[Rfam]
RNA: Bacterial antisense RNA HPnc0260
RNA sequence: UGUUGUUCAUUACUCAUGGUGCUCUUUAUUUUUCAAAAAAGAUGAUGAGCAGAGGAUAAAAAAUAAGAAAGAAGAGGGGAGAUAAAACGAGAAUGGUGCGUUCGAUUGGAUUCGAACCAACGACCCCCACCA
Number, nucleotide and partner (000 for none) at each position: 001u000002g024003u000004u000005g000006u000007u019008c018009a017010u016011u000012a000013c000014u000015c000016a010017u009018g008019g007020u000021g000022c000023u000024c002025u000026u000027u000028a000029u000030u000031u000032u000033u000034c000035a000036a000037a000038a000039a000040a000041g050042a000043u048044g000045a000046u000047g000048a043049g000050c041051a000052g000053a000054g000055g000056a000057u000058a000059a000060a000061a000062a000063a000064u000065a000066a000067g000068a000069a000070a000071g000072a000073a000074g000075a000076g000077g000078g000079g000080a000081g000082a000083u000084a000085a000086a000087a000088c000089g000090a000091g000092a000093a000094u129095g128096g127097u000098g125099c000100g000101u000102u000103c122104g121105a000106u120107u119108g118109g117110a000111u000112u000113c000114g000115a000116a000117c109118c108119a107120a106121c104122g103123a000124c000125c098126c000127c096128c095129a094130c000131c000132a000